[Rfam]
The family of this 248-nucleotide part of an RNA from uncultured bacterium 164 is "Bacterial large subunit ribosomal RNA". Rfam's curators put it in the seed alignment.

RNA sequence: GCAAUAUUGAAGGAAUCUGUCCUUAGUACGAGAGGACCGGGAUGGAUUGACCUCUAGUGUACGAGUUAUGGCGCCAGCCGUAUCGCUCGGUAGCUAUGUCGAGCAUGGAUAAACGCUGAAUGCAUCUAAGCGUGAAGCCAGACCUAAGAUUAGUAUUGCCAGUGAGACUCGUGGAAGACCACCACGUUGAUAGGAUGGAGAUGUAAGUGCAGUAAUGUACUUAGUUGACCAUUACUAAUUGUCCCAAG
Numbered sequence: 001g002c003a004a005u006a007u008u009g010a011a012g013g014a015a016u017c018u019g020u021c022c023u024u025a026g027u028a029c030g031a032g033a034g035g036a037c038c039g040g041g042a043u044g045g046a047u048u049g050a051c052c053u054c055u056a057g058u059g060u061a062c063g064a065g066u067u068a069u070g071g072c073g074c075c076a077g078c079c080g081u082a083u084c085g086c087u088c089g090g091u092a093g094c095u096a097u098g099u100c101g102a103g104c105a106u107g108g109a110u111a112a113a114c115g116c117u118g119a120a121u122g123c124a125u126c127u128a129a130g131c132g133u134g135a136a137g138c139c140a141g142a143c144c145u146a147a148g149a150u151u152a153g154u155a156u157u158g159c160c161a162g163u164g165a166g167a168c169u170c171g172u173g174g175a176a177g178a179c180c181a182c183c184a185c186g187u188u189g190a191u192a193g194g195a196u197g198g199a200g201a202u203g204u205a206a207g208u209g210c211a212g213u214a215a216u217g218u219a220c221u222u223a224g225u226u227g228a229c230c231a232u233u234a235c236u237a238a239u240u241g242u243c244c245c246a247a248g
Stems, first nucleotide, its partner, number of pairs: 001159008011145003017045007047102005055096003062089005067082006106140003113133005166243003170186005191237003194233005200226002207220005

Its Rfam clan is "LSU clan".